[Rfam]
RNA sequence: AGCAAUAGAAUAGGUGUCUCAAGGGUGGUCAGCUCAUCCCCGAUCAGAAAGGGGGUGGUGCUGCAUGACAGUGUUUGAAGCUUUGACGUUUGCUUGUACGUUUACAAGCUUGAUUCUCGCUGUACUGUCGUUUAACCACAAAAAAUAAUCCACCCUUGAGCCUGCAAGCAUAAGGUGGAUUAUUCCUACUUUAUUGCUGACGCCCUUGUAAGGGACCGUCUAUUGCAUCGACCGUUUUGGUGUUACCAGCACCAGACG
Numbered sequence: 001a002g003c004a005a006u007a008g009a010a011u012a013g014g015u016g017u018c019u020c021a022a023g024g025g026u027g028g029u030c031a032g033c034u035c036a037u038c039c040c041c042g043a044u045c046a047g048a049a050a051g052g053g054g055g056u057g058g059u060g061c062u063g064c065a066u067g068a069c070a071g072u073g074u075u076u077g078a079a080g081c082u083u084u085g086a087c088g089u090u091u092g093c094u095u096g097u098a099c100g101u102u103u104a105c106a107a108g109c110u111u112g113a114u115u116c117u118c119g120c121u122g123u124a125c126u127g128u129c130g131u132u133u134a135a136c137c138a139c140a141a142a143a144a145a146u147a148a149u150c151c152a153c154c155c156u157u158g159a160g161c162c163u164g165c166a167a168g169c170a171u172a173a174g175g176u177g178g179a180u181u182a183u184u185c186c187u188a189c190u191u192u193a194u195u196g197c198u199g200a201c202g203c204c205c206u207u208g209u210a211a212g213g214g215a216c217c218g219u220c221u222a223u224u225g226c227a228u229c230g231a232c233c234g235u236u237u238u239g240g241u242g243u244u245a246c247c248a249g250c251a252c253c254a255g256a257c258g
Stems, first nucleotide, its partner, number of pairs: 002226004007221003016201002018160008027150003034058003038055004067129007080095001104121001172191001203213002233258003238254007